MIR8565 microRNA precursor family: a 152-nucleotide RNA from Amborella trichopoda.
RNA sequence: CCCACACCCAUGUAUAGGGCUUCAAAGGAUCACCAUUAAAUUUGGCAGAGAUCUCUAGAAAAGUUAUCACAUGGGUGUGAGACUUGACUUUUCGAGAGAUCUAUGCCAAAUUUAAUGGUGAUCCUUUGAGGUCCUACACACAUAAGUGUGGG
Number, nucleotide and partner (000 for none) at each position: 001c000002c151003c150004a149005c148006a147007c146008c000009c000010a143011u142012g141013u140014a000015u136016a135017g134018g133019g132020c131021u130022u129023c128024a127025a126026a125027g000028g123029a122030u121031c000032a119033c118034c117035a116036u115037u114038a113039a112040a111041u110042u109043u108044g107045g106046c105047a104048g000049a102050g101051a100052u099053c098054u097055c096056u095057a000058g093059a092060a091061a090062a089063g088064u087065u086066a085067u080068c079069a078070c077071a076072u000073g000074g000075g000076u071077g070078u069079g068080a067081g000082a000083c000084u000085u066086g065087a064088c063089u062090u061091u060092u059093c058094g000095a056096g055097a054098g053099a052100u051101c050102u049103a000104u047105g046106c045107c044108a043109a042110a041111u040112u039113u038114a037115a036116u035117g034118g033119u032120g000121a030122u029123c028124c000125u026126u025127u024128g023129a022130g021131g020132u019133c018134c017135u016136a015137c000138a000139c000140a013141c012142a011143u010144a000145a000146g007147u006148g005149u004150g003151g002152g000

Lineage of the source: Eukaryota > Streptophyta > Spermatophyta > Amborellaceae > Amborella.